[Rfam]
RNA: RAGATH-18 RNA
RNA sequence: ACUGUGGAGCAUCAAAUAAACGCAAGUAGUCCAGACGAAAGCGGAUGCUAUGAAGCAGGAA
Numbered sequence: 001a002c003u004g005u006g007g008a009g010c011a012u013c014a015a016a017u018a019a020a021c022g023c024a025a026g027u028a029g030u031c032c033a034g035a036c037g038a039a040a041g042c043g044g045a046u047g048c049u050a051u052g053a054a055g056c057a058g059g060a061a
Base pairs, nucleotide, nucleotide: 002058003057004056005055009048010047011046012045013044021043022042023041029036030035